[Rfam]
RNA sequence: UGAUGAAGAUGAUGAAAGAAAUGGACGGGUGAUGAUUAACAUUUUUCAUAUGAUCAAAAAUCUCCUCGCUACGUUCUUUCUGAUUCAUUC
Numbered sequence: 001u002g003a004u005g006a007a008g009a010u011g012a013u014g015a016a017a018g019a020a021a022u023g024g025a026c027g028g029g030u031g032a033u034g035a036u037u038a039a040c041a042u043u044u045u046u047c048a049u050a051u052g053a054u055c056a057a058a059a060a061u062c063u064c065c066u067c068g069c070u071a072c073g074u075u076c077u078u079u080c081u082g083a084u085u086c087a088u089u090c
Stems, first nucleotide, its partner, number of pairs: 004087004
The family of this 90-nucleotide sequence from Durio zibethinus is "Small nucleolar RNA R32/R81/Z41".
Rfam links the family to the GO terms RNA processing and nucleolus.
For this family Rfam cites "Identification of 66 box C/D snoRNAs in Arabidopsis thaliana: extensive gene duplications generated multiple isoforms predicting new ribosomal RNA 2'-O-methylation sites" (Barneche et al., J Mol Biol, 2001).
The family's RNA type in Rfam is C/D-box small nucleolar RNA.
The organism belongs to Durio, within Eukaryota.